The record is a 137-nucleotide RNA from Sphenodon punctatus, which matches "Small nucleolar RNA SNORA55" in Rfam.
[Rfam]
RNA sequence: GCACUUGAAUCUUUCCCAUCCCUUGUAAUGCCGUUGGGGGUUUGGGGACACAAAGUGCUUACAGCAAAGCAGAGGAAAUCCAGACAGGUUGCUUUCCAAUUUCAUUGGGGGCUUGUCUCUACAACUCUGCAAUAUUU
Number, nucleotide and partner (000 for none) at each position: 001g058002c057003a056004c055005u054006u000007g000008a000009a000010u000011c000012u000013u048014u047015c046016c045017c044018a043019u000020c000021c040022c039023u000024u000025g000026u000027a000028a000029u000030g000031c000032c000033g000034u000035u000036g000037g000038g000039g022040g021041u000042u000043u018044g017045g016046g015047g014048a013049c000050a000051c000052a000053a000054a005055g004056u003057g002058c001059u000060u000061a000062c000063a000064g000065c000066a000067a000068a000069g130070c129071a128072g127073a126074g125075g000076a000077a000078a000079u000080c000081c000082a118083g117084a116085c115086a114087g113088g112089u111090u000091g000092c000093u000094u000095u000096c108097c107098a106099a000100u000101u000102u000103c000104a000105u000106u098107g097108g096109g000110g000111g089112c088113u087114u086115g085116u084117c083118u082119c000120u000121a000122c000123a000124a000125c074126u073127c072128u071129g070130c069131a000132a000133u000134a000135u000136u000137u000
It is annotated as an H/ACA-box small nucleolar RNA. From the family's description: ACA55 is a member of the H/ACA class of snoRNA that guide the sites of modification of uridines to pseudouridines. It scores 117 bits against the family's covariance model. The family's consensus secondary structure was predicted with PFOLD.